[Rfam]
RNA sequence: GGUCACAAGUUUGAGGCCAGAACAGAAGUACUUAUGGAGUGGCCCUGUCAGAUUCAAAUGAAUCUACAAAUUCUGCU
Numbered sequence: 001g002g003u004c005a006c007a008a009g010u011u012u013g014a015g016g017c018c019a020g021a022a023c024a025g026a027a028g029u030a031c032u033u034a035u036g037g038a039g040u041g042g043c044c045c046u047g048u049c050a051g052a053u054u055c056a057a058a059u060g061a062a063u064c065u066a067c068a069a070a071u072u073c074u075g076c077u
Stems, first nucleotide, its partner, number of pairs: 013045001015044004021077001023075005028040002050065006